Gag/pol translational readthrough site: a 63-nucleotide RNA from Neotoma lepida. On this family, see ten Dam et al., Virus Genes 1990: "RNA pseudoknots: translational frameshifting and readthrough on viral RNAs". It scores 68 bits against the family's covariance model. The family's RNA type in Rfam is cis-regulatory element.
[Rfam]
RNA sequence: UAGGGGAGUCAGGGCCAGGUGCCUCCCCCUGAGCCCCGGAUAACUCUUAUCGUCGGGGGGGCA
Numbered sequence: 001u002a003g004g005g006g007a008g009u010c011a012g013g014g015c016c017a018g019g020u021g022c023c024u025c026c027c028c029c030u031g032a033g034c035c036c037c038g039g040a041u042a043a044c045u046c047u048u049a050u051c052g053u054c055g056g057g058g059g060g061g062c063a
Stems, first nucleotide, its partner, number of pairs: 008041003012036004016031004022061004026056002